[Rfam]
RNA sequence: GGAGCAAAAAACCCCUCUUGGUCUAUCAAGAGGGCCUUAUUGCUCCUUUUUUA
Numbered sequence: 001g002g003a004g005c006a007a008a009a010a011a012c013c014c015c016u017c018u019u020g021g022u023c024u025a026u027c028a029a030g031a032g033g034g035c036c037u038u039a040u041u042g043c044u045c046c047u048u049u050u051u052u053a
Stems, first nucleotide, its partner, number of pairs: 001046007009038002015032006